Record summary
The family of this 345-nucleotide sequence from Spiroplasma clarkii is "Bacterial RNase P class B".
Nucleotides: 345
Stems, first nucleotide, its partner, number of pairs: 004345001007341001008313007016037006042339003046336005051227005056073006079222005084105006106122001107120005123217002127162003135155003141150003168215002170211003183200002186197004231247003251284007285298005315324003
Number, partner (000 for none) and nucleotide at each position: 001000a002000u003000u004345u005000u006000g007341a008313a009312u010311c011310a012309a013308u014307c015000g016037c017036u018035g019034u020033a021032u022000c023000u024000g025000a026000a027000a028000a029000a030000u031000g032021a033020u034019a035018u036017a037016g038000a039000g040000g041000a042339a043338a044337c045000u046336c047335c048334a049333u050332g051227c052226a053225u054224a055223c056073a057072c058071a059070u060069c061068c062000u063000g064000u065000g066000a067000u068061g069060g070059a071058u072057g073056u074000a075000g076000u077000g078000u079222u080221u081220g082219u083218g084105c085104u086103a087102g088101a089100g090000g091000a092000a093000a094000a095000g096000a097000u098000a099000a100089c101088u102087c103086u104085a105084g106122g107120c108119a109118u110117u111116a112000g113000c114000a115000a116111u117110a118109g119108u120107g121000a122106c123217g124216a125000c126000a127162g128161a129160g130000u131000g132000g133000u134000a135155a136154c137153c138000u139000a140000a141150g142149u143148g144000c145000u146000u147000g148143c149142a150141u151000a152000a153137g154136g155135u156000g157000a158000a159000a160129c161128u162127c163000a164000u165000a166000a167000a168215g169214u170211g171210c172209c173000a174000c175000a176000g177000g178000g179000a180000c181000g182000a183200u184199u185000a186197g187196c188195u189194u190000g191000a192000a193000a194189a195188a196187g197186u198000g199184a200183a201000a202000u203000g204000g205000a206000a207000c208000g209172g210171g211170u212000a213000a214169a215168c216124u217123c218083c219082a220081c221080a222079a223055g224054u225053a226052u227051g228000a229000a230000a231247c232246u233245c234000a235000a236000a237000u238000u239000u240000u241000g242000g243000u244000a245233g246232a247231g248000g249000a250000a251284c252283u253282a254281g255280a256279a257278a258000g259000u260000u261000a262000g263000g264000a265000a266000u267000c268000a269000a270000g271000a272000a273000c274000u275000g276000a277000u278257u279256u280255u281254u282253u283252g284251g285298a286297u287296u288295g289294c290000a291000u292000u293000u294289g295288c296287a297286a298285u299000a300000g301000a302000u303000a304000g305000a306000u307014g308013a309012u310011u311010g312009a313008u314000g315324u316323g317322c318000u319000u320000c321000g322317g323316u324315a325000a326000a327000c328000a329000g330000a331000a332050c333049a334048u335047g336046g337044g338043u339042u340000a341007u342000g343000a344000u345004a
Overview
NCBI's taxonomy places the organism under Bacteria, Mycoplasmatota, Mollicutes, Entomoplasmatales, Spiroplasma. The family's RNA type in Rfam is ribozyme. On this family, see Frank and Pace, Annu Rev Biochem 1998: "Ribonuclease P: unity and diversity in a tRNA processing ribozyme".